[Rfam]
RNA sequence: UGCUGUGAUAGUGUAAUUUGUGUGUUACCCAGUGUUCAGUGACAGCUGACUGCUGUUAACAUGCUGGCACUGAAGAAUUGAAGAUACCUUUAAUUCUGAGCA
Numbered sequence: 001u002g003c004u005g006u007g008a009u010a011g012u013g014u015a016a017u018u019u020g021u022g023u024g025u026u027a028c029c030c031a032g033u034g035u036u037c038a039g040u041g042a043c044a045g046c047u048g049a050c051u052g053c054u055g056u057u058a059a060c061a062u063g064c065u066g067g068c069a070c071u072g073a074a075g076a077a078u079u080g081a082a083g084a085u086a087c088c089u090u091u092a093a094u095u096c097u098g099a100g101c102a
Base pairs, nucleotide, nucleotide: 001102002101003100021082023080024079030072031071032070033069034068039064040063041057042056043055044054045053
Shown here is a 102-nucleotide RNA sequence from Alectura lathami, a member of the family "Small nucleolar RNA SNORD16".
Pairs were carried over by alignment from the consensus structure, which was predicted with PFOLD.
Rfam 15.1 lists 1,321 matches to the family in 655 species.
Rfam classes the family as a C/D-box small nucleolar RNA.